[Rfam]
The family of this 88-nucleotide RNA sequence from Pelusios castaneus is "mir-132 microRNA precursor family".
RNA sequence: GCGCGUCGGCACCUUGGCUCUAGACUGCUUACUGCUACGUAGCGUUAGAGAAACAGUAACAGUCUACAGUCAUGGCUACUGAAGCAUG
Number, nucleotide and partner (000 for none) at each position: 001g000002c000003g000004c000005g000006u000007c000008g000009g000010c000011a000012c075013c074014u000015u072016g071017g070018c069019u000020c000021u000022a000023g064024a063025c062026u061027g060028c000029u059030u058031a057032c056033u055034g000035c000036u000037a000038c000039g000040u000041a000042g000043c000044g000045u000046u000047a000048g000049a000050g000051a000052a000053a000054c000055a033056g032057u031058a030059a029060c027061a026062g025063u024064c023065u000066a000067c000068a000069g018070u017071c016072a015073u000074g013075g012076c000077u000078a000079c000080u000081g000082a000083a000084g000085c000086a000087u000088g000
Notes:
NCBI's taxonomy places the organism under Eukaryota, Deuterostomia, Chordata, Vertebrata, Pelusios.